[Rfam]
Shown here is an 85-nucleotide RNA sequence from Nannospalax galili, a member of the family "mir-3473 microRNA precursor family". A search with the family's covariance model found it, with a score of 76 bits. Rfam links the family to the GO terms miRNA-mediated post-transcriptional gene silencing, RISC complex and cellular response to mechanical stimulus. Pairs were carried over by alignment from the consensus structure, which was predicted with RNAalifold. Lineage of the source: Eukaryota > Dipnotetrapodomorpha > Tetrapoda > Eutheria > Nannospalax.
RNA sequence: ACUGCUGAGCCAUCUCUCCAGCCCCUUUACUAAGUUUUUUUAAAAAAAUAUUUUAUUUUGGAGGCUGGAGAGAUGGCUCAGCAAU
Numbered sequence: 001a002c003u004g005c006u007g008a009g010c011c012a013u014c015u016c017u018c019c020a021g022c023c024c025c026u027u028u029a030c031u032a033a034g035u036u037u038u039u040u041u042a043a044a045a046a047a048a049u050a051u052u053u054u055a056u057u058u059u060g061g062a063g064g065c066u067g068g069a070g071a072g073a074u075g076g077c078u079c080a081g082c083a084a085u
Stems, first nucleotide, its partner, number of pairs: 003083021